[Rfam]
RNA sequence: ACUCACUCAACCUGGGUGUGAUGUCCGUUGAGAGCCCGUCACAACCUCCUUGAGUGAGCGA
Numbered sequence: 001a002c003u004c005a006c007u008c009a010a011c012c013u014g015g016g017u018g019u020g021a022u023g024u025c026c027g028u029u030g031a032g033a034g035c036c037c038g039u040c041a042c043a044a045c046c047u048c049c050u051u052g053a054g055u056g057a058g059c060g061a
Stems, first nucleotide, its partner, number of pairs: 002058009014046002017043007
RNA: mir-67 microRNA precursor family